[Rfam]
The record is a 122-nucleotide RNA from Idiomarina loihiensis, which matches "Gammaprotebacteria rimP leader" in Rfam. Rfam links the family to the GO term regulation of gene expression. NCBI's taxonomy places the organism under Bacteria, Pseudomonadati, Pseudomonadota, Gammaproteobacteria, Idiomarina loihiensis.
RNA sequence: UGCUAAAAUAACUGACAAAGGGUCCAGUGUUCAGAAAGCCCCGCAGCAGCUCGGGGCUUUUUGCUAUGCGGCCUUAGCUAUCUUAGGAUAGCCAGAACACUGGGCGCUUGCGCCCUUUUUUU
Numbered sequence: 001u002g003c004u005a006a007a008a009u010a011a012c013u014g015a016c017a018a019a020g021g022g023u024c025c026a027g028u029g030u031u032c033a034g035a036a037a038g039c040c041c042c043g044c045a046g047c048a049g050c051u052c053g054g055g056g057c058u059u060u061u062u063g064c065u066a067u068g069c070g071g072c073c074u075u076a077g078c079u080a081u082c083u084u085a086g087g088a089u090a091g092c093c094a095g096a097a098c099a100c101u102g103g104g105c106g107c108u109u110g111c112g113c114c115c116u117u118u119u120u121u122u
Base pairs, nucleotide, nucleotide: 035060036059037058038057039056040055041054042053043052102115103114104113105112